[Rfam]
Background:
The family of this 67-nucleotide RNA sequence from Parafrankia soli is "Transposase-2 RNA". By type it is a small RNA. The family's consensus secondary structure is taken from published work.
RNA sequence: GAAACGGGAACCCGGCACCGCGCGAGCGGGUCAGACCGGGGGUGCCUCACCGAGAGGCGAGGCGGCA
Number, nucleotide and partner (000 for none) at each position: 001g000002a000003a000004a000005c000006g000007g000008g000009a000010a000011c040012c039013c038014g037015g036016c000017a000018c029019c028020g027021c026022g000023c000024g000025a000026g021027c020028g019029g018030g000031u000032c000033a000034g000035a000036c015037c014038g013039g012040g011041g000042g000043u000044g063045c062046c061047u060048c059049a000050c057051c056052g000053a000054g000055a000056g051057g050058c000059g048060a047061g046062g045063c044064g000065g000066c000067a000